A member of the RNA family "Fluoride riboswitch aptamer (crcB RNA motif)" from Erwinia sp. 198, 74 nucleotides long. A search with the family's covariance model found it, with a score of 45 bits. The family's consensus secondary structure is taken from published work. Gene Ontology terms of the family: positive regulation of gene expression and response to fluoride.
[Rfam]
RNA sequence: AUGGCCCGAGGCGAUGGUGUGCCGCCUUUCCCAACCGCCCUGGCUUAUAAGGGGCUGAUGACACCUGACAACGC
Numbered sequence: 001a002u003g004g005c006c007c008g009a010g011g012c013g014a015u016g017g018u019g020u021g022c023c024g025c026c027u028u029u030c031c032c033a034a035c036c037g038c039c040c041u042g043g044c045u046u047a048u049a050a051g052g053g054g055c056u057g058a059u060g061a062c063a064c065c066u067g068a069c070a071a072c073g074c
Base pairs, nucleotide, nucleotide: 010026011025012024013023016065017064018063019062020061037055038054039053040052
Dot-bracket structure: .........[[[[..(((((..]]]]..........((((...........)))).....))))).........
A reference for the family is Ren et al. (2012), "Fluoride ion encapsulation by Mg2+ ions and phosphates in a fluoride riboswitch", Nature.